[Rfam]
RNA sequence: UAACCCUGGAGACCAGCAACCAGUAAAAACGGGGCGCCACCGAAAAGCCAAACGAGUAGGAACCUA
Numbered sequence: 001u002a003a004c005c006c007u008g009g010a011g012a013c014c015a016g017c018a019a020c021c022a023g024u025a026a027a028a029a030c031g032g033g034g035c036g037c038c039a040c041c042g043a044a045a046a047g048c049c050a051a052a053c054g055a056g057u058a059g060g061a062a063c064c065u066a
Base pairs, nucleotide, nucleotide: 006023007022008021009020033049034048035047040060041059
Shown here is a 66-nucleotide RNA from Adhaeribacter pallidiroseus, a member of the family "DUF805 RNA". Lineage of the source: Bacteria > Pseudomonadati > Cytophagia > Hymenobacteraceae > Adhaeribacter.